Rfam assigns this 75-nucleotide sequence from a Desulfobacteraceae bacterium to the family "c-di-GMP-I-GGC riboswitch aptamer". On this family, see Smith et al., Nat Struct Mol Biol 2009: "Structural basis of ligand binding by a c-di-GMP riboswitch". The family is grouped with related families in Rfam's "c-di-GMP_I riboswitch clan". Pairs were carried over by alignment from the consensus structure, which is taken from published work.
[Rfam]
RNA sequence: UAAGAAAAAGCCAAACCUGUUGUGAGGCAGGGACGGAAAUCCACGGGUUUCAUUGAGACAGCCGGGUUGCCUAGU
Numbered sequence: 001u002a003a004g005a006a007a008a009a010g011c012c013a014a015a016c017c018u019g020u021u022g023u024g025a026g027g028c029a030g031g032g033a034c035g036g037a038a039a040u041c042c043a044c045g046g047g048u049u050u051c052a053u054u055g056a057g058a059c060a061g062c063c064g065g066g067u068u069g070c071c072u073a074g075u
Stems, first nucleotide, its partner, number of pairs: 003072002011036002016031006034061001039068001041066002044064003047059003